[Rfam]
RNA sequence: UUGCAGAAGAACUAGGGUUCCGACUGCCAAUUAAAUUUUGGCAGUGUCUGGUCCGAGAGUUCUCGGUCUUGUCGAUGAUAAGACUUCACGGAGGGAUAAAAGCCCGGGAGGU
Numbered sequence: 001u002u003g004c005a006g007a008a009g010a011a012c013u014a015g016g017g018u019u020c021c022g023a024c025u026g027c028c029a030a031u032u033a034a035a036u037u038u039u040g041g042c043a044g045u046g047u048c049u050g051g052u053c054c055g056a057g058a059g060u061u062c063u064c065g066g067u068c069u070u071g072u073c074g075a076u077g078a079u080a081a082g083a084c085u086u087c088a089c090g091g092a093g094g095g096a097u098a099a100a101a102g103c104c105c106g107g108g109a110g111g112u
Stems, first nucleotide, its partner, number of pairs: 008063005015054002020051002022048001023045008065085008087107001089110001093105003

The family of this 112-nucleotide RNA sequence from Gallionella capsiferriformans is "Guanidine-I riboswitch aptamer". The family has 100 seed sequences and 1,509 matches in Rfam 15.1. On this family, see Barrick et al., Proc Natl Acad Sci U S A 2004: "New RNA motifs suggest an expanded scope for riboswitches in bacterial genetic control". A search with the family's covariance model found it, with a score of 88 bits.